T-box leader: a 275-nucleotide RNA from Paenibacillus piri. The family's RNA type in Rfam is cis-regulatory leader. About the family: Uncharged tRNA acts as the effector for transcription antitermination of genes in the T-box leader family. T-boxes are found upstream of many aminoacyl-tRNA synthetase genes and some amino acid biosynthetic genes usually in Gram-positive bacteria. The family has 48 seed sequences and 19,395 matches in Rfam 15.1.
RNA sequence: AUAAACGCGAAGAACGGGAACAGUAGUCGGCCGGAUCUGUCUAGAGAGCUGCGGGGUGGUGCAACGCAGUCGGAGAAGCCAGCGAACCUCGCCCGGGAGCGGUGGAACUGAAACGGUGUAGCGCUGCACGCGCAAGUAGGUUCCAACGGGUUGCCUCCGUGACAAGGCCGUGCGAAAGAGGAACCAAUCCUCUGCACCCAAAGGCGGACCUUCGGCUUGUGCCGGGGUCAACAAGAGUGGUACCGCGAUAGACAUAACGGUCUGUCGUCUCUUAU
Numbered sequence: 001a002u003a004a005a006c007g008c009g010a011a012g013a014a015c016g017g018g019a020a021c022a023g024u025a026g027u028c029g030g031c032c033g034g035a036u037c038u039g040u041c042u043a044g045a046g047a048g049c050u051g052c053g054g055g056g057u058g059g060u061g062c063a064a065c066g067c068a069g070u071c072g073g074a075g076a077a078g079c080c081a082g083c084g085a086a087c088c089u090c091g092c093c094c095g096g097g098a099g100c101g102g103u104g105g106a107a108c109u110g111a112a113a114c115g116g117u118g119u120a121g122c123g124c125u126g127c128a129c130g131c132g133c134a135a136g137u138a139g140g141u142u143c144c145a146a147c148g149g150g151u152u153g154c155c156u157c158c159g160u161g162a163c164a165a166g167g168c169c170g171u172g173c174g175a176a177a178g179a180g181g182a183a184c185c186a187a188u189c190c191u192c193u194g195c196a197c198c199c200a201a202a203g204g205c206g207g208a209c210c211u212u213c214g215g216c217u218u219g220u221g222c223c224g225g226g227g228u229c230a231a232c233a234a235g236a237g238u239g240g241u242a243c244c245g246c247g248a249u250a251g252a253c254a255u256a257a258c259g260g261u262c263u264g265u266c267g268u269c270u271c272u273u274a275u
Stems, first nucleotide, its partner, number of pairs: 007100002015095004026083002029080003037073003048070006103145007147159003207229006234272004245268009
The source organism's lineage runs through Bacteria, Bacillati, Bacilli, Caryophanales and Paenibacillus. Gene Ontology term of the family: tRNA binding.